[Rfam]
RNA: RT-2 RNA
RNA sequence: AUAGGCUCGACAAAGUAACCCCGCGCGGGCGAAAUCAAUGCCUUUGCAAAAGGGGCGCAUGACCUUUCCGUAAGGAUAAAUAAAUACCCCGAUGUAGUCGAUCGGACGCUUCUUGCAUUGCCGCUUAUCGUGGUACAGCGGUUUAAUGGUCGGUACUACGGGCAAUCGGAACUCCACGACGAUAAACAGGUUGUACGGGGUAAUACGUCAAAUGAACAGCAAA
Numbered sequence: 001a002u003a004g005g006c007u008c009g010a011c012a013a014a015g016u017a018a019c020c021c022c023g024c025g026c027g028g029g030c031g032a033a034a035u036c037a038a039u040g041c042c043u044u045u046g047c048a049a050a051a052g053g054g055g056c057g058c059a060u061g062a063c064c065u066u067u068c069c070g071u072a073a074g075g076a077u078a079a080a081u082a083a084a085u086a087c088c089c090c091g092a093u094g095u096a097g098u099c100g101a102u103c104g105g106a107c108g109c110u111u112c113u114u115g116c117a118u119u120g121c122c123g124c125u126u127a128u129c130g131u132g133g134u135a136c137a138g139c140g141g142u143u144u145a146a147u148g149g150u151c152g153g154u155a156c157u158a159c160g161g162g163c164a165a166u167c168g169g170a171a172c173u174c175c176a177c178g179a180c181g182a183u184a185a186a187c188a189g190g191u192u193g194u195a196c197g198g199g200g201u202a203a204u205a206c207g208u209c210a211a212a213u214g215a216a217c218a219g220c221a222a223a
Stems, first nucleotide, its partner, number of pairs: 004042003019029002067076003085202007093195001094159005099152005108116002120142006162194005169180001